[Rfam]
RNA sequence: AAACAAGGGAGCAAUACCCAAUAUCUUGUUCUAGCAAGAUAUUGGGUAUUGCUACUUCA
Number, nucleotide and partner (000 for none) at each position: 001a000002a000003a000004c000005a000006a057007g056008g055009g000010a053011g052012c051013a050014a049015u048016a047017c000018c000019c000020a043021a042022u000023a040024u039025c038026u037027u036028g035029u000030u000031c000032u000033a000034g000035c028036a027037a026038g025039a024040u023041a000042u021043u020044g000045g000046g000047u016048a015049u014050u013051g012052c011053u010054a000055c008056u007057u006058c000059a000
Rfam assigns this 59-nucleotide sequence to the family "Plastid-psbA-4 3UTR RNA". Rfam's curators put it in the seed alignment. From the family's description: Plastid psbA-4 is a non-coding RNA (ncRNA) present in plastids. Rfam classes the family as a cis-regulatory element. Pairs were carried over by alignment from the consensus structure, which was predicted with LocARNA.